[Rfam]
RNA sequence: GGGAGAGUAUGCUACUGGUGUAGCAAGCGGUCUUGAAAACCGCUAUACGGUAUCCAUUCCGGGGGUUCGACUCCUCUACUCUCCG
Numbered sequence: 001g002g003g004a005g006a007g008u009a010u011g012c013u014a015c016u017g018g019u020g021u022a023g024c025a026a027g028c029g030g031u032c033u034u035g036a037a038a039a040c041c042g043c044u045a046u047a048c049g050g051u052a053u054c055c056a057u058u059c060c061g062g063g064g065g066u067u068c069g070a071c072u073c074c075u076c077u078a079c080u081c082u083c084c085g
Stems, first nucleotide, its partner, number of pairs: 002084008010025006026044006050059001062076004
RNA: Selenocysteine transfer RNA
Organism: Gimaduovirus GMA2